The record is a 93-nucleotide sequence from Paenibacillus mucilaginosus, which matches "c-di-GMP-I riboswitch aptamer" in Rfam. Lineage of the source: Bacteria > Bacilli > Paenibacillaceae > Paenibacillus > Paenibacillus mucilaginosus. A search with the family's covariance model found it, with a score of 81 bits.

[Rfam]
RNA sequence: CUUGUUCAAUAGCAAACUUAUUGAAAAAUAAGGACGCAAAGCCUCGGGCCUAAGGAAUGAACCUUCUCAUUCUAUGGCAGCCGGGCUGCCUUA
Numbered sequence: 001c002u003u004g005u006u007c008a009a010u011a012g013c014a015a016a017c018u019u020a021u022u023g024a025a026a027a028a029u030a031a032g033g034a035c036g037c038a039a040a041g042c043c044u045c046g047g048g049c050c051u052a053a054g055g056a057a058u059g060a061a062c063c064u065u066c067u068c069a070u071u072c073u074a075u076g077g078c079a080g081c082c083g084g085g086c087u088g089c090c091u092u093a
Base pairs, nucleotide, nucleotide: 012037013036017032018031019030020029021028022027040087041086042085043084045083046082047081048078049077050076055072056071057070058069059068060067